[Rfam]
RNA sequence: AGGCAACGAUGAUGACAGGAUUGUCACUGGCUGGAACCUUCCUCGUGGAGACACCAGUCCCUCUAAGCUGAUGUUGCCC
Dot-bracket structure: .((((((.................................................................)))))).
Numbered sequence: 001a002g003g004c005a006a007c008g009a010u011g012a013u014g015a016c017a018g019g020a021u022u023g024u025c026a027c028u029g030g031c032u033g034g035a036a037c038c039u040u041c042c043u044c045g046u047g048g049a050g051a052c053a054c055c056a057g058u059c060c061c062u063c064u065a066a067g068c069u070g071a072u073g074u075u076g077c078c079c
Stems, first nucleotide, its partner, number of pairs: 002078006